[Rfam]
RNA sequence: CAGUGAAAUGAUGCUUGACCAUCUUUCGGGACUGAUCUUUUCCGUGACGAAGAUUUAUCCCAAACUGAUCACUA
Numbered sequence: 001c002a003g004u005g006a007a008a009u010g011a012u013g014c015u016u017g018a019c020c021a022u023c024u025u026u027c028g029g030g031a032c033u034g035a036u037c038u039u040u041u042c043c044g045u046g047a048c049g050a051a052g053a054u055u056u057a058u059c060c061c062a063a064a065c066u067g068a069u070c071a072c073u074a
Stems, first nucleotide, its partner, number of pairs: 002073005

The record is a 74-nucleotide RNA sequence from Denticeps clupeoides, which matches "Small nucleolar RNA SNORD2" in Rfam.
The organism belongs to Denticeps, within Eukaryota.
The match comes from Rfam's covariance-model search (49 bits).